[Rfam]
A member of the RNA family "TPP riboswitch aptamer (THI element)" from Parolsenella catena, 97 nucleotides long.
RNA sequence: ACCGUUAGCUGGGGGUGCUCGAAAGAGCUGAGAGGAUACCCAACCCCUUGAACCUGACCUGGUUAGGACCAGCGUAGGGAAGCUCGCUGCCUUUCGC
Numbered sequence: 001a002c003c004g005u006u007a008g009c010u011g012g013g014g015g016u017g018c019u020c021g022a023a024a025g026a027g028c029u030g031a032g033a034g035g036a037u038a039c040c041c042a043a044c045c046c047c048u049u050g051a052a053c054c055u056g057a058c059c060u061g062g063u064u065a066g067g068a069c070c071a072g073c074g075u076a077g078g079g080a081a082g083c084u085c086g087c088u089g090c091c092u093u094u095c096g097c
Base pairs, nucleotide, nucleotide: 007084008083009082010081011047012046013045014044017028018027019026020025035040053078054077055076056075059072060071061070062069
Dot-bracket structure: ......((((((((..((((....))))......(....)...)))).....((((..((((......))))..))))..)))).............
Taxonomically the source falls in Parolsenella (Bacteria, Bacillati, Actinomycetota, Coriobacteriia). Pairs were carried over by alignment from the consensus structure, which is taken from published work.